Record summary
This 80-nucleotide sequence from Ornithorhynchus anatinus belongs to the Rfam family "Small nucleolar RNA U2-19".
RNA sequence: GAUCAGUGAUGAAAAAUAGCCAAAUCUGAGCAUCAGAGGCCAUCUGGUCUACAUGGUGCAUGAUCACUAUAGUUCUGGGA
Numbered sequence: 001g002a003u004c005a006g007u008g009a010u011g012a013a014a015a016a017u018a019g020c021c022a023a024a025u026c027u028g029a030g031c032a033u034c035a036g037a038g039g040c041c042a043u044c045u046g047g048u049c050u051a052c053a054u055g056g057u058g059c060a061u062g063a064u065c066a067c068u069a070u071a072g073u074u075c076u077g078g079g080a
Base pairs, nucleotide, nucleotide: 030059031058032057033056034055037050038049039048040047